[Rfam]
Notes:
The family of this 72-nucleotide RNA sequence from Rhodopseudomonas rhenobacensis is "Makes More Granules Regulator RNA (mmgR)". A search with the family's covariance model found it, with a score of 65 bits. Gene Ontology terms of the family: DNA-templated transcription, termination, response to nitrogen compound and protein binding.
RNA sequence: CUGUCGAGCCCUCCUUGGGCGUUUCCUCCCUAGACUUGGCCGCCAGCAAUGGCGGCCUUUUUCUUGGCCUGG
Number, nucleotide and partner (000 for none) at each position: 001c000002u000003g000004u000005c000006g000007a000008g020009c019010c018011c017012u000013c000014c000015u000016u000017g011018g010019g009020c008021g000022u000023u000024u000025c000026c000027u000028c000029c000030c000031u000032a000033g000034a000035c000036u000037u000038g057039g056040c055041c054042g053043c052044c051045a050046g000047c000048a000049a000050u045051g044052g043053c042054g041055g040056c039057c038058u000059u000060u000061u000062u000063c000064u000065u000066g000067g000068c000069c000070u000071g000072g000
It is annotated as a small RNA. Rfam describes the family as follows. SuhB later renamed mmgR (makes more granules regulator) was a putative non-coding RNA found multiple times in the Agrobacterium tumefaciens genome and related alpha-proteobacteria. Other non-coding RNAs uncovered in the same analysis include: speF, ybhL, metA, and serC.Several studies inSinorhizobium meliloti showed that suhB element is indeed a non-coding RNA:firstly it was detected on Northern blot and called Sm8RNA, secondly in an RNAseq study referred to as SmelC689.The mutant phenotype's (strain lacking the small RNA) cytoplasm contains higher content of polyhydroxybutyrate (PBH)storage granules than wild type strain. The sRNA is required to limit the PBH intracellular accumulation when the nitrogen-fixing Sinorhizobium meliloti is under condition of surplus carbon in relation to nitrogen. It has been renamed to mmgR. Further study confirmed that mmgR fine-tunes the regulation of PBH storage.Northern blot confirmed the expression of the sRNA in other rhizobia species. The literature on the family includes a 2005 paper in Genome Biol by Corbino et al., "Evidence for a second class of S-adenosylmethionine riboswitches and other regulatory RNA motifs in alpha-proteobacteria".